[Rfam]
RNA sequence: GACCGACAUCAGGGACUCAUUCUGCGAGCCCUGGCCCACCGCGAGAUAGGCGUUCAUGCCCAGCUCUUUCAUCUGCUGUUCGCCGAUCACGCGGGUGGUGAUAUUUUUGCUAAAGGCAUCGGCUAACUGGCGGGCCUGAGAAGCCAGAUACGCCGGAUUACAAAUGUUAGGUGGCAUAUUGCCGAGGUCUUUUGC
Numbered sequence: 001g002a003c004c005g006a007c008a009u010c011a012g013g014g015a016c017u018c019a020u021u022c023u024g025c026g027a028g029c030c031c032u033g034g035c036c037c038a039c040c041g042c043g044a045g046a047u048a049g050g051c052g053u054u055c056a057u058g059c060c061c062a063g064c065u066c067u068u069u070c071a072u073c074u075g076c077u078g079u080u081c082g083c084c085g086a087u088c089a090c091g092c093g094g095g096u097g098g099u100g101a102u103a104u105u106u107u108u109g110c111u112a113a114a115g116g117c118a119u120c121g122g123c124u125a126a127c128u129g130g131c132g133g134g135c136c137u138g139a140g141a142a143g144c145c146a147g148a149u150a151c152g153c154c155g156g157a158u159u160a161c162a163a164a165u166g167u168u169a170g171g172u173g174g175c176a177u178a179u180u181g182c183c184g185a186g187g188u189c190u191u192u193u194g195c
Base pairs, nucleotide, nucleotide: 005189006188007187012032013031014030016028017027018026020024034042035041050059051058062077063076064075078135079134080133081132082131083130084129085128087126091123092122094120095119096118097117099112100111102109103108137162138161140159141158144155167186168185170183171182172181
The record is a 195-nucleotide RNA from Enterobacterales bacterium CwR94, which matches "Yersinia sRNA 276" in Rfam. Rfam classes the family as an antisense RNA. The organism belongs to Enterobacterales, within Bacteria.